[Rfam]
RNA sequence: UUCGGUACUUGAGUACCGAAUGCAAGCGUGCGGGGAGCUAUUCCGACAGCGAGCCGCAUAAGUCCUGUAUGCACCUGGGCCACACUAACGGCAGGGUGCCGAUUACACAAUACAAGGAG
Number, nucleotide and partner (000 for none) at each position: 001u020002u019003c018004g017005g016006u015007a014008c013009u000010u000011g000012a000013g008014u007015a006016c005017c004018g003019a002020a001021u000022g000023c000024a000025a000026g000027c000028g059029u058030g057031c056032g055033g054034g000035g000036a000037g050038c049039u048040a000041u000042u000043c000044c000045g000046a000047c000048a039049g038050c037051g000052a000053g000054c033055c032056g031057c030058a029059u028060a000061a000062g000063u000064c000065c000066u000067g000068u000069a000070u000071g099072c098073a097074c096075c000076u094077g000078g000079g000080c000081c000082a000083c000084a000085c000086u000087a000088a000089c000090g000091g000092c000093a000094g076095g000096g074097u073098g072099c071100c000101g000102a000103u000104u000105a000106c000107a000108c000109a000110a000111u000112a000113c000114a000115a000116g000117g000118a000119g000
This 119-nucleotide RNA sequence belongs to the Rfam family "FTHFS RNA". The sequence is in the family's curated seed alignment. The base pairs follow the family's consensus structure, which is taken from published work.